[Rfam]
This 79-nucleotide RNA from Pelomicrobium methylotrophicum belongs to the Rfam family "Group II catalytic intron D1-D4-1". A search with the family's covariance model found it, with a score of 67 bits. Group II introns are found in rRNA, tRNA and mRNA of organelles in fungi, plants and protists, and also in mRNA in bacteria.

Nucleotides: 079
Stems, first nucleotide, its partner, number of pairs: 001027001004023003008019004040047002049079003058072006
Number, partner (000 for none) and nucleotide at each position: 001027c002000u003000a004023c005022c006021g007000g008019c009018g010017u011016c012000g013000a014000g015000a016011g017010g018009c019008g020000g021006c022005g023004g024000g025000a026000u027001g028000g029000c030000g031000g032000g033000u034000c035000a036000g037000a038000a039000g040047u041046c042000a043000g044000c045000a046041g047040a048000a049079g050078c051077c052000a053000u054000a055000g056000u057000a058072g059071g060070u061069g062068c063067g064000c065000c066000g067063c068062g069061c070060a071059c072058c073000g074000a075000a076000g077051g078050g079049c